[Rfam]
RNA: mir-9/mir-79 microRNA precursor family
RNA sequence: CUUCAUUUUGCUUUGGUAUUAUAGCUGUAUGAUGCUUUUGAUACUCAUAAAGCUAAAUUACCAAAGCAGAAAGUAU
Number, nucleotide and partner (000 for none) at each position: 001c000002u075003u000004c073005a000006u000007u070008u069009u068010g067011c066012u065013u064014u063015g062016g061017u060018a059019u000020u057021a000022u055023a054024g053025c052026u051027g000028u049029a048030u047031g046032a045033u000034g000035c000036u000037u000038u000039u000040g000041a000042u000043a000044c000045u032046c031047a030048u029049a028050a000051a026052g025053c024054u023055a022056a000057a020058u000059u018060a017061c016062c015063a014064a013065a012066g011067c010068a009069g008070a007071a000072a000073g004074u000075a002076u000